Nucleotides: 329
Stems, first nucleotide, its partner, number of pairs: 020212007221252005229241004253269005274319005288306004293302003
Number, partner (000 for none) and nucleotide at each position: 001000c002000a003000g004000g005000c006000a007000a008000u009000a010000u011000a012000a013000g014000c015000g016000c017000c018000a019000g020212a021211g022210c023209u024208u025207g026206c027000a028000a029000c030000a031000a032000a033000g034000g035000a036000u037000g038000c039000c040000g041000a042000u043000u044000u045000u046000c047000g048000g049000c050000a051000g052000g053000a054000c055000u056000c057000c058000c059000g060000g061000c062000c063000a064000c065000g066000g067000a068000g069000c070000g071000g072000g073000a074000g075000c076000a077000a078000a079000g080000g081000a082000u083000a084000g085000c086000c087000c088000g089000u090000g091000u092000c093000a094000u095000a096000c097000g098000g099000g100000u101000g102000c103000g104000g105000u106000c107000c108000a109000u110000g111000g112000u113000c114000g115000a116000c117000g118000a119000c120000g121000c122000c123000g124000g125000a126000u127000a128000g129000a130000a131000g132000a133000u134000c135000c136000a137000g138000g139000c140000g141000g142000g143000a144000g145000c146000g147000g148000c149000g150000g151000g152000a153000c154000c155000g156000g157000g158000c159000a160000g161000c162000u163000u164000c165000g166000c167000g168000a169000g170000g171000a172000g173000c174000g175000g176000c177000g178000g179000c180000c181000u182000u183000u184000g185000g186000a187000u188000u189000c190000c191000u192000g193000a194000g195000g196000c197000a198000u199000c200000c201000c202000c203000a204000g205000a206026g207025c208024a209023a210022g211021c212020u213000g214000a215000c216000g217000a218000g219000g220000u221252g222251a223250a224249g225248g226000u227000g228000u229241u230240c231239g232238a233000a234000a235000c236000a237000u238232u239231c240230g241229g242000c243000g244000g245000g246000g247000a248225c249224c250223u251222u252221c253269c254268g255267g256266u257265g258000g259000g260000c261000a262000u263000g264000a265257c266256a267255u268254c269253g270000a271000c272000a273000g274319c275318c276317g277316u278315u279000a280000u281000c282000g283000c284000a285000a286000a287000a288306g289305g290304a291303c292000g293302c294301g295300g296000g297000c298000a299000a300295c301294c302293g303291g304290u305289c306288u307000u308000a309000c310000a311000a312000a313000c314000g315278a316277a317276c318275g319274g320000c321000a322000c323000c324000a325000u326000g327000c328000a329000g

Shown here is a 329-nucleotide sequence from Paenibacillus sp. D9, a member of the family "glmS glucosamine-6-phosphate activated ribozyme aptamer". The organism belongs to Paenibacillus, within Bacteria. From the family's description: This entry contains a glucosamine-6-phosphate activated ribozyme that is found in the mRNA for GlmS. GlmS is an enzyme that uses fructose-6-phosphate and glutamine to generate glucosamine-6-phosphate. The ribozyme catalyses self cleavage of the glmS mRNA that is thought to regulate GlmS activity. It is annotated as a riboswitch.